[Rfam]
RNA: Plant small nucleolar RNA R71
Organism: Thalictrum thalictroides
RNA sequence: AUUUGAUGAUGUGGACAUUGUAUUUGUAACUCCCCAAAUCUUUCCCAAGCUUCAAAGAAUUCUUCCGUAUGUUUUUGUCUAAAAGUUUGAAUCUUGUUUCUUAAAUC
Numbered sequence: 001a002u003u004u005g006a007u008g009a010u011g012u013g014g015a016c017a018u019u020g021u022a023u024u025u026g027u028a029a030c031u032c033c034c035c036a037a038a039u040c041u042u043u044c045c046c047a048a049g050c051u052u053c054a055a056a057g058a059a060u061u062c063u064u065c066c067g068u069a070u071g072u073u074u075u076u077g078u079c080u081a082a083a084a085g086u087u088u089g090a091a092u093c094u095u096g097u098u099u100c101u102u103a104a105a106u107c
Stems, first nucleotide, its partner, number of pairs: 003105002005102002057074002060071001